[Rfam]
The family of this 48-nucleotide RNA sequence is "DUF3800-XI RNA".
Rfam classes the family as a small RNA.
From the family's description: Actinobacteria, Firmicutes, Proteobacteria, Spirochaetes (1 example).
It is one of the family's seed sequences.
RNA sequence: GGGGCUGGUCGAAAGACCCAGGUCCAUCUGAUGGCGGGGAAGUUCCUC
Numbered sequence: 001g002g003g004g005c006u007g008g009u010c011g012a013a014a015g016a017c018c019c020a021g022g023u024c025c026a027u028c029u030g031a032u033g034g035c036g037g038g039g040a041a042g043u044u045c046c047u048c
Base pairs, nucleotide, nucleotide: 002025003024004023005022006021007018008017009016010015